[Rfam]
RNA sequence: ACCUAUGUUAGAGGUGCUAUUUAUAAAUAGUAAUAAAUUGUAGCUGGCAAGUGAUGAUAAUUUAUGAAAGGUAUAAUAGCCGAAGGAGUAAUUUAUGCAAAGGAUUAUUUCUGGGUAUGCAUAAAAUAUAUGCAUAACUGUCACGUAAGUGGAGGGCUACAAGGUGC
Numbered sequence: 001a002c003c004u005a006u007g008u009u010a011g012a013g014g015u016g017c018u019a020u021u022u023a024u025a026a027a028u029a030g031u032a033a034u035a036a037a038u039u040g041u042a043g044c045u046g047g048c049a050a051g052u053g054a055u056g057a058u059a060a061u062u063u064a065u066g067a068a069a070g071g072u073a074u075a076a077u078a079g080c081c082g083a084a085g086g087a088g089u090a091a092u093u094u095a096u097g098c099a100a101a102g103g104a105u106u107a108u109u110u111c112u113g114g115g116u117a118u119g120c121a122u123a124a125a126a127u128a129u130a131u132g133c134a135u136a137a138c139u140g141u142c143a144c145g146u147a148a149g150u151g152g153a154g155g156g157c158u159a160c161a162a163g164g165u166g167c
Stems, first nucleotide, its partner, number of pairs: 006162001009159003016080006023074003033065008084112011113139002116136008141152004
RNA: Lysine riboswitch aptamer
Organism: Clostridium celatum